[Rfam]
RNA: Molybdenum/Tungsten riboswitch aptamer (Moco RNA motif)
RNA sequence: GAUUAAUCCCAUCUCCGAGCCGCGGCGCCUAAAGGGUCACACCCCAGGGCGUCCGGCCAACGGGUACCGCCGGAAACGGCGGCGCCUCCCUUUUGGAAAGGAGACCCUGGGGCACACCU
Numbered sequence: 001g002a003u004u005a006a007u008c009c010c011a012u013c014u015c016c017g018a019g020c021c022g023c024g025g026c027g028c029c030u031a032a033a034g035g036g037u038c039a040c041a042c043c044c045c046a047g048g049g050c051g052u053c054c055g056g057c058c059a060a061c062g063g064g065u066a067c068c069g070c071c072g073g074a075a076a077c078g079g080c081g082g083c084g085c086c087u088c089c090c091u092u093u094u095g096g097a098a099a100g101g102a103g104a105c106c107c108u109g110g111g112g113c114a115c116a117c118c119u
Stems, first nucleotide, its partner, number of pairs: 004112001012104005019057004024053006034044003062087004067082006088096002